[Rfam]
RNA sequence: CCAGCACUUUCACAGGUCCUCCCUUAGUCAGUGGAGCCAGGAUUUGGUAGCUGGAACUAACAGAAAACCCUUGAUUAUAACUUUGCCCUGAUACUGUACCAGUGGCAGCUGUCUCUCAGGGGAACAGAU
Numbered sequence: 001c002c003a004g005c006a007c008u009u010u011c012a013c014a015g016g017u018c019c020u021c022c023c024u025u026a027g028u029c030a031g032u033g034g035a036g037c038c039a040g041g042a043u044u045u046g047g048u049a050g051c052u053g054g055a056a057c058u059a060a061c062a063g064a065a066a067a068c069c070c071u072u073g074a075u076u077a078u079a080a081c082u083u084u085g086c087c088c089u090g091a092u093a094c095u096g097u098a099c100c101a102g103u104g105g106c107a108g109c110u111g112u113c114u115c116u117c118a119g120g121g122g123a124a125c126a127g128a129u
Stems, first nucleotide, its partner, number of pairs: 003058002007054002013046003017042004022036001024034002069122002071119004079112001083108005088102003